The family of this 62-nucleotide RNA from Rattus norvegicus is "Gag/pol translational readthrough site". Taxonomically the source falls in Rattus (Eukaryota, Deuterostomia, Vertebrata, Myomorpha). The match comes from Rfam's covariance-model search (68 bits). For this family Rfam cites "RNA pseudoknots: translational frameshifting and readthrough on viral RNAs" (ten Dam et al., Virus Genes, 1990). The family's consensus secondary structure is taken from published work.

[Rfam]
RNA sequence: UAGGGGGGACAGGGUUCAGAGCCCUUACCCGAACCCAGGGUAACUCUGAAAGUGGAGGGGAA
Dot-bracket structure: .......[.[.[[[[[..[..(((((.]..].]]]]..].]..............)))))..
Numbered sequence: 001u002a003g004g005g006g007g008g009a010c011a012g013g014g015u016u017c018a019g020a021g022c023c024c025u026u027a028c029c030c031g032a033a034c035c036c037a038g039g040g041u042a043a044c045u046c047u048g049a050a051a052g053u054g055g056a057g058g059g060g061a062a
Stems, first nucleotide, its partner, number of pairs: 008041001010039001012036004016031001019028001022060005